Overview: Shown here is an 87-nucleotide RNA from Triticum aestivum, a member of the family "MIR1120/MIR1122 microRNA precursor family". It scores 87 bits against the family's covariance model.

RNA sequence: CUACUCCCUCCGUCCCAUAAUAUAAGAGCGUUUUUUACAUUACUGUAGUGUAAAAAACGCUCUUAUAUUAAGGGACCGAGGGAAUAG
Numbered sequence: 001c002u003a004c005u006c007c008c009u010c011c012g013u014c015c016c017a018u019a020a021u022a023u024a025a026g027a028g029c030g031u032u033u034u035u036u037a038c039a040u041u042a043c044u045g046u047a048g049u050g051u052a053a054a055a056a057a058c059g060c061u062c063u064u065a066u067a068u069u070a071a072g073g074g075a076c077c078g079a080g081g082g083a084a085u086a087g
Base pairs, nucleotide, nucleotide: 003085005083007081008080009079010078013075014074015073016072019069020068021067022066023065024064025063026062027061028060029059030058031057032056033055034054035053036052037051038050039049040048041047